Annotation
A member of the RNA family "Fungal signal recognition particle RNA" from Tuber magnatum, 271 nucleotides long. Gene Ontology terms of the family: SRP-dependent cotranslational protein targeting to membrane, signal sequence recognition, signal recognition particle, endoplasmic reticulum targeting and signal recognition particle, plasma membrane targeting. The base pairs follow the family's consensus structure, which is taken from published work.

RNA sequence: UGGCUGUAAUGGCCAUCCUGAGAGAAGAUUUUCACAUCUCCGUUCCAAUUUCCCUUUCCAUUCCAACGGAAAGCGGUGCCCGGUUCGAAUCCUGUGGUCGUCACUUUCCACCAGUGCGGGUAACCCACUGAGCUGGUCGGCGCUAAGGGUGAGAAAUAACCUUCAGGGAAGCAAUUCUGCAGAGAGUUCUCCCCACAGGGUGGCGGCGCCGGAUUACACUGCGAUCCGGUACGGGAAGUUGGGGUAGGAAAGAAAUGUCGACUUUCAAAUU
Numbered sequence: 001u002g003g004c005u006g007u008a009a010u011g012g013c014c015a016u017c018c019u020g021a022g023a024g025a026a027g028a029u030u031u032u033c034a035c036a037u038c039u040c041c042g043u044u045c046c047a048a049u050u051u052c053c054c055u056u057u058c059c060a061u062u063c064c065a066a067c068g069g070a071a072a073g074c075g076g077u078g079c080c081c082g083g084u085u086c087g088a089a090u091c092c093u094g095u096g097g098u099c100g101u102c103a104c105u106u107u108c109c110a111c112c113a114g115u116g117c118g119g120g121u122a123a124c125c126c127a128c129u130g131a132g133c134u135g136g137u138c139g140g141c142g143c144u145a146a147g148g149g150u151g152a153g154a155a156a157u158a159a160c161c162u163u164c165a166g167g168g169a170a171g172c173a174a175u176u177c178u179g180c181a182g183a184g185a186g187u188u189c190u191c192c193c194c195a196c197a198g199g200g201u202g203g204c205g206g207c208g209c210c211g212g213a214u215u216a217c218a219c220u221g222c223g224a225u226c227c228g229g230u231a232c233g234g235g236a237a238g239u240u241g242g243g244g245u246a247g248g249a250a251a252g253a254a255a256u257g258u259c260g261a262c263u264u265u266c267a268a269a270u271u
Base pairs, nucleotide, nucleotide: 001015002014003013004012019267020266021265022264023263024262027259028258029257031255032254035252037250038247039246042245043244045242046241047240048239049238050237051236052235053234054233067228068227069226070225073222074221075220076219077218078217080212081211082210083209084208085206086205087204089201090200091199092198093197094196095195096194097193099142101140102139106136107135109132112130113129114128115127116126118125119124143147151191152190153189154188155187161184162183163182168177169176170175
Dot-bracket structure: ((((.......))))...((((((..(((.((..(.(((..((.((((((((((............((((..((((((.((((((((.(((((((((.(.((...((.(..(((((.((....))))))).)..))..)).)(...)...(((((.....(((....(((....)))....)))..))))).)))))))))..))).)))))....))))))..))))....)))))))))).))))..).).)).)))..))))))....

The match comes from Rfam's covariance-model search (142 bits). Lineage of the source: Eukaryota > Opisthokonta > Fungi > saccharomyceta > Tuber. Rfam classes the family as a non-coding RNA gene.